[Rfam]
RNA sequence: CGGGUAAUGGCCGCCGGCGGCCACUUAGCGGCAGGCGAACCUGUCCUGCCCCGCGAACCAGCUCUGGAGAACAGCCUCGGGGAUCAUCCCGUCAUCACUGGCGGGCACCCCCUUCGCUGCCACCUGGUACGCGCCGCCCUGCUGGCGUCAGAGCAGCAACGAUGACGCACCCG
Numbered sequence: 001c002g003g004g005u006a007a008u009g010g011c012c013g014c015c016g017g018c019g020g021c022c023a024c025u026u027a028g029c030g031g032c033a034g035g036c037g038a039a040c041c042u043g044u045c046c047u048g049c050c051c052c053g054c055g056a057a058c059c060a061g062c063u064c065u066g067g068a069g070a071a072c073a074g075c076c077u078c079g080g081g082g083a084u085c086a087u088c089c090c091g092u093c094a095u096c097a098c099u100g101g102c103g104g105g106c107a108c109c110c111c112c113u114u115c116g117c118u119g120c121c122a123c124c125u126g127g128u129a130c131g132c133g134c135c136g137c138c139c140u141g142c143u144g145g146c147g148u149c150a151g152a153g154c155a156g157c158a159a160c161g162a163u164g165a166c167g168c169a170c171c172c173g
Stems, first nucleotide, its partner, number of pairs: 016138006053132003057128005065122003072119004
Dot-bracket structure: ...............((((((...............................(((.(((((...(((....((((........................................))))))).))))).)))))))))...................................
A member of the RNA family "gntR-DTE RNA" from Streptomyces chattanoogensis, 173 nucleotides long. The family's consensus secondary structure is taken from published work. It scores 94 bits against the family's covariance model. It is annotated as a small RNA.